[Rfam]
Nucleotides: 061
Base pairs, nucleotide, nucleotide: 018044019043020042021041023039024038025037026036027035
Number, partner (000 for none) and nucleotide at each position: 001000u002000g003000c004000a005000a006000u007000a008000a009000c010000c011000a012000u013000c014000a015000a016000a017000u018044g019043g020042g021041u022000a023039g024038u025037u026036c027035c028000c029000u030000a031000c032000c033000c034000c035027g036026g037025a038024g039023c040000g041021a042020c043019u044018u045000u046000a047000c048000c049000a050000u051000a052000u053000u054000c055000u056000a057000a058000a059000u060000u061000c